[Rfam]
RNA sequence: CCGUGACUGUUGCUAACAUGCAACUCUGUACACAAGCUGGAAUUGCACUUUAGCAAUGGUGGCCG
Numbered sequence: 001c002c003g004u005g006a007c008u009g010u011u012g013c014u015a016a017c018a019u020g021c022a023a024c025u026c027u028g029u030a031c032a033c034a035a036g037c038u039g040g041a042a043u044u045g046c047a048c049u050u051u052a053g054c055a056a057u058g059g060u061g062g063c064c065g
Stems, first nucleotide, its partner, number of pairs: 006060011019047005025041004